[Rfam]
SAH (S-adenosyl-L-homocysteine) riboswitch aptamer: a 79-nucleotide RNA sequence from endosymbiont of Escarpia spicata. The base pairs follow the family's consensus structure, which is taken from published work. A reference for the family is Wang et al. (2008), "Riboswitches that sense S-adenosylhomocysteine and activate genes involved in coenzyme recycling", Mol Cell. Rfam links the family to the GO terms S-adenosylhomocysteine metabolic process and regulation of gene expression.
RNA sequence: CUCCCCGAGGGGCGCUGCAGCGGAAACACUUCCGUCAGGCUCGGGAAGAGGGCAACUCAAAAAACGGCGCUCAUUUGUC
Numbered sequence: 001c002u003c004c005c006c007g008a009g010g011g012g013c014g015c016u017g018c019a020g021c022g023g024a025a026a027c028a029c030u031u032c033c034g035u036c037a038g039g040c041u042c043g044g045g046a047a048g049a050g051g052g053c054a055a056c057u058c059a060a061a062a063a064a065c066g067g068c069g070c071u072c073a074u075u076u077g078u079c
Stems, first nucleotide, its partner, number of pairs: 002047001004045005021034005
Dot-bracket structure: .(.(((((............(((((....)))))......))))).)................................